[Rfam]
RNA sequence: CAUCGCUUGACGGGGUGCCGGUGGAACCGGCUGAGAUCACCCUACGGCACGGCUAUCAGUGUGUCGUCACGGUGGGGCCCGUUGAACCUGACCUGGCUAGGACCAGCGUAGGGAUCAAGCGACACGCAGGC
Numbered sequence: 001c002a003u004c005g006c007u008u009g010a011c012g013g014g015g016u017g018c019c020g021g022u023g024g025a026a027c028c029g030g031c032u033g034a035g036a037u038c039a040c041c042c043u044a045c046g047g048c049a050c051g052g053c054u055a056u057c058a059g060u061g062u063g064u065c066g067u068c069a070c071g072g073u074g075g076g077g078c079c080c081g082u083u084g085a086a087c088c089u090g091a092c093c094u095g096g097c098u099a100g101g102a103c104c105a106g107c108g109u110a111g112g113g114a115u116c117a118a119g120c121g122a123c124a125c126g127c128a129g130g131c
Base pairs, nucleotide, nucleotide: 006119007118008117009116010115011081012080013079014078016075017031018030019029020028021027038074039073040072041071087112088111089110090109093106094105095104096103
RNA: TPP riboswitch aptamer (THI element)